[Rfam]
RNA sequence: AAAACAGUUAUAGCGCCAGUACUGAAGAAAUCGAGCGUAGAAGCUUCAGUAGACGAGGUGGAGGAGUAUCGAAGUUUUCGGCGGAUGCCUCCCGGUCGCAAGUGCCCGAUCGUAUGCUUACUUUUAAAUGGCUCAAGUAAUUGAGCAGACAGAGAGAGUAAGAAGGCAAAAU
Numbered sequence: 001a002a003a004a005c006a007g008u009u010a011u012a013g014c015g016c017c018a019g020u021a022c023u024g025a026a027g028a029a030a031u032c033g034a035g036c037g038u039a040g041a042a043g044c045u046u047c048a049g050u051a052g053a054c055g056a057g058g059u060g061g062a063g064g065a066g067u068a069u070c071g072a073a074g075u076u077u078u079c080g081g082c083g084g085a086u087g088c089c090u091c092c093c094g095g096u097c098g099c100a101a102g103u104g105c106c107c108g109a110u111c112g113u114a115u116g117c118u119u120a121c122u123u124u125u126a127a128a129u130g131g132c133u134c135a136a137g138u139a140a141u142u143g144a145g146c147a148g149a150c151a152g153a154g155a156g157a158g159u160a161a162g163a164a165g166g167c168a169a170a171a172u
Base pairs, nucleotide, nucleotide: 020051021050022049023048024047025046026045027044060092061091062090063089064088069081070080071079072078093112094111095110096109097108098107117162118161119160120159121158122157123156131146132145133144134143135142136141
Dot-bracket structure: ...................((((((((................))))))))........(((((....((((.....))))......)))))((((((........))))))....(((((((.......((((((....)))))).........)))))))..........
Rfam assigns this 172-nucleotide sequence from Rummeliibacillus sp. TYF005 to the family "glmS glucosamine-6-phosphate activated ribozyme aptamer". The match comes from Rfam's covariance-model search (115 bits). The family's RNA type in Rfam is riboswitch. The organism belongs to Rummeliibacillus, within Bacteria.